[Rfam]
Nucleotides: 037
Base pairs, nucleotide, nucleotide: 002021003020004019005018010036011035012034
Number, partner (000 for none) and nucleotide at each position: 001000a002021a003020u004019g005018g006000g007000g008000u009000a010036g011035c012034u013000g014000a015000a016000a017000a018005c019004c020003a021002u022000u023000a024000u025000a026000a027000c028000a029000g030000a031000g032000u033000a034012g035011g036010c037000a